[Rfam]
RNA sequence: GCUUCCGGUUAGUUUUGCAGGUUUGCAUUUCAGCGUACUUGUGCAUAUAGGGCUGUGCAAAUCCAUGCAAAACUGACCGUGAUC
Numbered sequence: 001g002c003u004u005c006c007g008g009u010u011a012g013u014u015u016u017g018c019a020g021g022u023u024u025g026c027a028u029u030u031c032a033g034c035g036u037a038c039u040u041g042u043g044c045a046u047a048u049a050g051g052g053c054u055g056u057g058c059a060a061a062u063c064c065a066u067g068c069a070a071a072a073c074u075g076a077c078c079g080u081g082a083u084c
Stems, first nucleotide, its partner, number of pairs: 003082002006079014020064002022061007032054003